The record is a 119-nucleotide sequence from Firmicutes bacterium CAG:791, which matches "Glycine riboswitch aptamer" in Rfam.
RNA sequence: CGGAGUGGCUCUGGAGAAGCUCCGGAUUUACGGAGUGCCGAAGGUGCAAGCACGGAGAAGAUCAUUUUAAAAGGAAAUCGUCUCCGCAAUCUCUCAGGCAAAAGGACAGAGUGAUAUAU
Dot-bracket structure: .....(.((((((......((((........)))).(((((..(.(...((..................................))...).))).))).......)))))).).....
From the family's description: This family represents the bacterial glycine riboswitch. Glycine riboswitches usually consist of two metabolite-binding aptamers domains with similar structures in tandem. The aptamers cooperatively bind glycine to regulate the expression of downstream genes. In Bacillus subtilis, this riboswitch is found upstream of the gcvT operon which controls glycine degradation. Taxonomically the source falls in Bacillota (Bacteria, Bacillati).